A member of the RNA family "Guanidine-II riboswitch aptamer (mini-ykkC)" from Erwinia sp. Leaf53, 49 nucleotides long.
[Rfam]
RNA sequence: UAUCCGGGACGACCCGGAUAGCUUGCGGCCGUACCCGAGGACGACCUUG
Dot-bracket structure: ((((((((....))))))))...............(((((....)))))
Rfam describes the family as follows. Simpler in structure and has fewer highly conserved nucleotide positions than the ykkC-yxkD leader. Despite this each of its two stem-loop structures directly bind free guanidine. Therefore, mini-ykkC RNA motif represents a distinct class of guanidine-sensing RNAs. Its crystal structure was also determined.